The family of this 123-nucleotide sequence from Echeneis naucrates is "Small nucleolar RNA SNORA65".
On this family, see Huttenhofer et al., EMBO J 2001: "RNomics: an experimental approach that identifies 201 candidates for novel, small, non-messenger RNAs in mouse".
Gene Ontology terms of the family: nucleolus and RNA processing.
U65 belongs to the H/ACA class of snoRNAs which are thought to guide the sites of modification of uridines to pseudouridines.

[Rfam]
RNA sequence: CCCGCCACUAUUCCUGUCUAAGUGACUGAGUAUAAUCCAGUGGAGGCUCAGACUAACCCAGCUUUAGGAAACAGGGCUGUCCAAACUAAUGGACAACUCUGUGCCGAAAAGUCUGGAACAAGA
Numbered sequence: 001c002c003c004g005c006c007a008c009u010a011u012u013c014c015u016g017u018c019u020a021a022g023u024g025a026c027u028g029a030g031u032a033u034a035a036u037c038c039a040g041u042g043g044a045g046g047c048u049c050a051g052a053c054u055a056a057c058c059c060a061g062c063u064u065u066a067g068g069a070a071a072c073a074g075g076g077c078u079g080u081c082c083a084a085a086c087u088a089a090u091g092g093a094c095a096a097c098u099c100u101g102u103g104c105c106g107a108a109a110a111g112u113c114u115g116g117a118a119c120a121a122g123a
Base pairs, nucleotide, nucleotide: 005043006042007041008040009039018030019029021027058116059115060114061113062111063110064109065108067105068104072101073100074099075098076097080093081092082091